[Rfam]
RNA sequence: AGUUGAAUAUCAAAUCAUUCAGGGCCUUUUAGAAGACCCGGUGGACAAUUUUUGGCUAGCACUUUUUGUGCUU
Numbered sequence: 001a002g003u004u005g006a007a008u009a010u011c012a013a014a015u016c017a018u019u020c021a022g023g024g025c026c027u028u029u030u031a032g033a034a035g036a037c038c039c040g041g042u043g044g045a046c047a048a049u050u051u052u053u054g055g056c057u058a059g060c061a062c063u064u065u066u067u068g069u070g071c072u073u
Stems, first nucleotide, its partner, number of pairs: 022039003026035003058072005
The family of this 73-nucleotide sequence from Bursaphelenchus okinawaensis is "SmY spliceosomal RNA". A reference for the family is MacMorris et al. (2007), "A novel family of C. elegans snRNPs contains proteins associated with trans-splicing", RNA. Pairs were carried over by alignment from the consensus structure, which is taken from published work.